Shown here is a 62-nucleotide RNA from Desulfofundulus thermobenzoicus, a member of the family "Fluoride riboswitch aptamer (crcB RNA motif)". A reference for the family is Baker et al. (2012), "Widespread genetic switches and toxicity resistance proteins for fluoride", Science.
[Rfam]
RNA sequence: UCUGAUCAAGGCGAUGGAGUUCGCCCCUUUGCCGUCGAACGGCUAAUGACUCCUACCGUAUU
Numbered sequence: 001u002c003u004g005a006u007c008a009a010g011g012c013g014a015u016g017g018a019g020u021u022c023g024c025c026c027c028u029u030u031g032c033c034g035u036c037g038a039a040c041g042g043c044u045a046a047u048g049a050c051u052c053c054u055a056c057c058g059u060a061u062u
Stems, first nucleotide, its partner, number of pairs: 010025004016053006031043004
A search with the family's covariance model found it, with a score of 41 bits.